[Rfam]
RNA: Fungal signal recognition particle RNA
Organism: Rhinocladiella mackenziei
RNA sequence: UGGCUGUCAUGGUCAAAAAGCUAGGAGGUUGCCUUUGAGCCUUGGGCGUCGCUUCACACUCCCACUUGUUCAUGUGUGCCUUGCUCGGAAUUUCGGGUCGUUCUUCGUACUCGUGCGUGUAAACUACGACUGCUACGGAAUGUUAAGCAAUGGAGAAGACACUUGAGGGAAGCAAUUCUGCAGAGACUUCUCCACCCGGAGUUGGCGGCGUGAGAUUACACCGUGGCAAGAUAUGCGAAGUUUCGGGCUUGUCUGGUAACCAACUUUUUU
Numbered sequence: 001u002g003g004c005u006g007u008c009a010u011g012g013u014c015a016a017a018a019a020g021c022u023a024g025g026a027g028g029u030u031g032c033c034u035u036u037g038a039g040c041c042u043u044g045g046g047c048g049u050c051g052c053u054u055c056a057c058a059c060u061c062c063c064a065c066u067u068g069u070u071c072a073u074g075u076g077u078g079c080c081u082u083g084c085u086c087g088g089a090a091u092u093u094c095g096g097g098u099c100g101u102u103c104u105u106c107g108u109a110c111u112c113g114u115g116c117g118u119g120u121a122a123a124c125u126a127c128g129a130c131u132g133c134u135a136c137g138g139a140a141u142g143u144u145a146a147g148c149a150a151u152g153g154a155g156a157a158g159a160c161a162c163u164u165g166a167g168g169g170a171a172g173c174a175a176u177u178c179u180g181c182a183g184a185g186a187c188u189u190c191u192c193c194a195c196c197c198g199g200a201g202u203u204g205g206c207g208g209c210g211u212g213a214g215a216u217u218a219c220a221c222c223g224u225g226g227c228a229a230g231a232u233a234u235g236c237g238a239a240g241u242u243u244c245g246g247g248c249u250u251g252u253c254u255g256g257u258a259a260c261c262a263a264c265u266u267u268u269u270u
Stems, first nucleotide, its partner, number of pairs: 001015004017268004022263001027261007036251003040247003048244001051241004067228002070226005076221003080214005085208003089203009099142001101140004105135001108132002111129005117124002143147001151194007162185003169178003
Dot-bracket structure: ((((.......)))).((((.(....(((((((..(((.(((.....(..((((............((.(((((.(((.((((((((.(((((((((.(.(((((..((.(((((.((....))))))).))..).)))).)(...)...(((((((....(((....(((....)))....)))..))))))))))))))))..))).)))))....)))))))))).........))))..)))).)))...))))))).).))))..